[Rfam]
The record is a 114-nucleotide RNA from Labrus bergylta, which matches "Potassium channel RNA editing signal" in Rfam. Rfam classes the family as a cis-regulatory element. The match comes from Rfam's covariance-model search (85 bits).
RNA sequence: GUAGGUUAUGGAGAUAUCUACCCAAAAACUCUUCUAGGAAAGAUAGUUGGAGGAUUGUGCUGCAUAGCUGGAGUUCUGGUGAUAGCCCUGCCUAUCCCCAUCAUCGUGAAUAAC
Numbered sequence: 001g002u003a004g005g006u007u008a009u010g011g012a013g014a015u016a017u018c019u020a021c022c023c024a025a026a027a028a029c030u031c032u033u034c035u036a037g038g039a040a041a042g043a044u045a046g047u048u049g050g051a052g053g054a055u056u057g058u059g060c061u062g063c064a065u066a067g068c069u070g071g072a073g074u075u076c077u078g079g080u081g082a083u084a085g086c087c088c089u090g091c092c093u094a095u096c097c098c099c100a101u102c103a104u105c106g107u108g109a110a111u112a113a114c
Stems, first nucleotide, its partner, number of pairs: 001114002004111001007108005013102003020095001037077004049063001051061001